Shown here is a 58-nucleotide RNA sequence from Leifsonia sp. 21MFCrub1.1, a member of the family "msiK RNA". The match comes from Rfam's covariance-model search (64 bits). The organism belongs to Leifsonia, within Bacteria. Pairs were carried over by alignment from the consensus structure, which is taken from published work. It is annotated as a cis-regulatory element.

RNA sequence: CACGUUCAUCCAUUCACAACGGAUCGUCCGGCACGUACCUGCCGGUGAAGGAGACACA
Numbered sequence: 001c002a003c004g005u006u007c008a009u010c011c012a013u014u015c016a017c018a019a020c021g022g023a024u025c026g027u028c029c030g031g032c033a034c035g036u037a038c039c040u041g042c043c044g045g046u047g048a049a050g051g052a053g054a055c056a057c058a
Stems, first nucleotide, its partner, number of pairs: 010051002013049004028045006